[Rfam]
RNA sequence: GCCAAAACCACACACUUCCUUACAUUCCAUAGCAAAGUAAUCCGUAUGGGGAUAUAAAGAAGCAUGUGGUCUUGGG
Numbered sequence: 001g002c003c004a005a006a007a008c009c010a011c012a013c014a015c016u017u018c019c020u021u022a023c024a025u026u027c028c029a030u031a032g033c034a035a036a037g038u039a040a041u042c043c044g045u046a047u048g049g050g051g052a053u054a055u056a057a058a059g060a061a062g063c064a065u066g067u068g069g070u071c072u073u074g075g076g
Stems, first nucleotide, its partner, number of pairs: 007070006015062004020057003024053002027049005